RNA sequence: CUCCACCCUUUUACUUUGCCAAUUGGACUUAUGUCUUUAUGGUGAUUCAAGUGGGGCAAAGGAAAUAUCCUUUUAAAACUCAAGCAAACUGAGUGUUUGUCUUGUAUUCUGUCAGGGGAAACAAAU
Numbered sequence: 001c002u003c004c005a006c007c008c009u010u011u012u013a014c015u016u017u018g019c020c021a022a023u024u025g026g027a028c029u030u031a032u033g034u035c036u037u038u039a040u041g042g043u044g045a046u047u048c049a050a051g052u053g054g055g056g057c058a059a060a061g062g063a064a065a066u067a068u069c070c071u072u073u074u075a076a077a078a079c080u081c082a083a084g085c086a087a088a089c090u091g092a093g094u095g096u097u098u099g100u101c102u103u104g105u106a107u108u109c110u111g112u113c114a115g116g117g118g119a120a121a122c123a124a125a126u
Stems, first nucleotide, its partner, number of pairs: 032058005040049003068119006081104001082102001084100006
This 126-nucleotide RNA sequence from Phyllostomus discolor belongs to the Rfam family "Small nucleolar RNA SNORA27". The family's RNA type in Rfam is H/ACA-box small nucleolar RNA. It scores 136 bits against the family's covariance model. Pairs were carried over by alignment from the consensus structure. Lineage of the source: Eukaryota > Metazoa > Mammalia > Phyllostomidae > Phyllostomus. Gene Ontology terms of the family: RNA processing and nucleolus. Rfam's curators write: ACA27 is a member of the H/ACA class of snoRNA that guide the sites of modification of uridines to pseudouridines.